[Rfam]
RNA sequence: CUCUUAUCCUGAGUAGGCGGAGGGACAGGCCCGAAGAAGCCCAGCAACCAUCAUUCUAAUGCCAUGAAUGAAAAGGUGCUAACCUGCAAGGCAUAUGCCUUGAACGAUAAGAG
Numbered sequence: 001c002u003c004u005u006a007u008c009c010u011g012a013g014u015a016g017g018c019g020g021a022g023g024g025a026c027a028g029g030c031c032c033g034a035a036g037a038a039g040c041c042c043a044g045c046a047a048c049c050a051u052c053a054u055u056c057u058a059a060u061g062c063c064a065u066g067a068a069u070g071a072a073a074a075g076g077u078g079c080u081a082a083c084c085u086g087c088a089a090g091g092c093a094u095a096u097g098c099c100u101u102g103a104a105c106g107a108u109a110a111g112a113g
Stems, first nucleotide, its partner, number of pairs: 001113008013042001016041003022032003026086004043080004048076002051071006087102006

Overview
Rfam assigns this 113-nucleotide RNA from Halalkalibacter suaedae to the family "SAM riboswitch aptamer (S box leader)". It scores 78 bits against the family's covariance model. About the family: The SAM riboswitch is found upstream of a number of genes which code for proteins involved in methionine or cysteine biosynthesis in Gram-positive bacteria. NCBI's taxonomy places the organism under Bacteria, Bacillota, Bacilli, Caryophanales, Halalkalibacter.